[Rfam]
RNA sequence: UGCUUUCCGUGUUCACUACUGGCCUUCUGUGGUUCGAGAUUACAUAAGGCACGCGGUGAAUGCCAAGAGCC
Number, nucleotide and partner (000 for none) at each position: 001u000002g000003c069004u068005u067006u066007c000008c000009g063010u062011g061012u060013u059014c058015a057016c056017u000018a000019c053020u000021g000022g000023c049024c048025u047026u046027c000028u044029g043030u042031g000032g000033u000034u000035c000036g000037a000038g000039a000040u000041u000042a030043c029044a028045u000046a026047a025048g024049g023050c000051a000052c000053g019054c000055g000056g016057u015058g014059a013060a012061u011062g010063c009064c000065a000066a006067g005068a004069g003070c000071c000